The record is a 172-nucleotide RNA from Streptomyces hainanensis, which matches "Streptomyces RNA 1601" in Rfam.
RNA sequence: UGCGACCGGCCGGACACUCGAGUGCCCGGCCCGCAAGUGGAGGCUCCGUACUCCCACCUGAUCGGCCCGAGAGGCCGGCAGGUCAAUGGUCAGGCUGCGCCCCGCGGUGAUGCUGCGGCGGUGCUCCCGGUCUGCAAGGAGCCCCGCCUGUGUGCCGUUCGGGGCGUUUUCU
Numbered sequence: 001u002g003c004g005a006c007c008g009g010c011c012g013g014a015c016a017c018u019c020g021a022g023u024g025c026c027c028g029g030c031c032c033g034c035a036a037g038u039g040g041a042g043g044c045u046c047c048g049u050a051c052u053c054c055c056a057c058c059u060g061a062u063c064g065g066c067c068c069g070a071g072a073g074g075c076c077g078g079c080a081g082g083u084c085a086a087u088g089g090u091c092a093g094g095c096u097g098c099g100c101c102c103c104g105c106g107g108u109g110a111u112g113c114u115g116c117g118g119c120g121g122u123g124c125u126c127c128c129g130g131u132c133u134g135c136a137a138g139g140a141g142c143c144c145c146g147c148c149u150g151u152g153u154g155c156c157g158u159u160c161g162g163g164g165c166g167u168u169u170u171c172u
Base pairs, nucleotide, nucleotide: 004091005090006089007088008087012027013026028084029083030082031081034060035059037057038056039055040054041052042051062078063077064076065075066074067073099165100164101163102162103161104160105157106156107155112153115151116150117148118147119146120145121144123142124141125140126139127138
Identified by deep sequencing of transcriptome at the end of exponential growth phase. Appears longer on northern blot than sequencing transcript. Streptomyces specific. NCBI's taxonomy places the organism under Bacteria, Bacillati, Actinomycetes, Streptomycetaceae, Streptomyces. The match comes from Rfam's covariance-model search (113 bits). For this family Rfam cites "Deep sequencing-based identification of small non-coding RNAs in Streptomyces coelicolor" (Vockenhuber et al., RNA Biol, 2011).